mir-139 microRNA precursor family: a 68-nucleotide RNA sequence from Anolis carolinensis. The family's consensus secondary structure was predicted with RNAalifold. A reference for the family is Murchison et al. (2008), "Conservation of small RNA pathways in platypus", Genome Res. Rfam's curators put it in the seed alignment. Taxonomically the source falls in Anolis (Eukaryota, Euteleostomi, Sauropsida, Toxicofera).
RNA sequence: CUGUAUUCUACAGUGCAUGUGUCUCCAGUGUUUUCCAGCGACUGGAGAUACGGCCCUGUUGGAAUAAC
Numbered sequence: 001c002u003g004u005a006u007u008c009u010a011c012a013g014u015g016c017a018u019g020u021g022u023c024u025c026c027a028g029u030g031u032u033u034u035c036c037a038g039c040g041a042c043u044g045g046a047g048a049u050a051c052g053g054c055c056c057u058g059u060u061g062g063a064a065u066a067a068c
Stems, first nucleotide, its partner, number of pairs: 006064004010059004015054002018052012